A member of the RNA family "Group II catalytic intron D1-D4-5" from Lentibacillus populi, 200 nucleotides long. Group II introns are found in rRNA, tRNA and mRNA of organelles in fungi, plants and protists, and also in mRNA in bacteria. The organism belongs to Lentibacillus, within Bacteria.

[Rfam]
RNA sequence: UUGAAGGAUUAUAUCGAAGAAUCAAAUGACGGGGUAACGCCCUGAAGGGUUCUCUCUUAGUCGAUUAGCACUUGAUUUAGUAAGAAUGACAGUGUUAAAAGCUCGGUGAAAAGGCGUAAGAAUUUACCGUAACAGUGAAAUUUAGCUGACGAAAGCCUACCCGCGGGGGUGGUGUAAAUCAUGAUGCUUGAGUGGAAUGA
Numbered sequence: 001u002u003g004a005a006g007g008a009u010u011a012u013a014u015c016g017a018a019g020a021a022u023c024a025a026a027u028g029a030c031g032g033g034g035u036a037a038c039g040c041c042c043u044g045a046a047g048g049g050u051u052c053u054c055u056c057u058u059a060g061u062c063g064a065u066u067a068g069c070a071c072u073u074g075a076u077u078u079a080g081u082a083a084g085a086a087u088g089a090c091a092g093u094g095u096u097a098a099a100a101g102c103u104c105g106g107u108g109a110a111a112a113g114g115c116g117u118a119a120g121a122a123u124u125u126a127c128c129g130u131a132a133c134a135g136u137g138a139a140a141u142u143u144a145g146c147u148g149a150c151g152a153a154a155g156c157c158u159a160c161c162c163g164c165g166g167g168g169g170u171g172g173u174g175u176a177a178a179u180c181a182u183g184a185u186g187c188u189u190g191a192g193u194g195g196a197a198u199g200a
Base pairs, nucleotide, nucleotide: 018053019052020051021050022049023048031043032042033041034040054192055191056190061106062105063104064103065098066097067096068095069094070093071092072091076089077088113188114187115186116185117184122179123178124177125176126175127174128151129150130149134147135146155173156172157171159170160169161168162167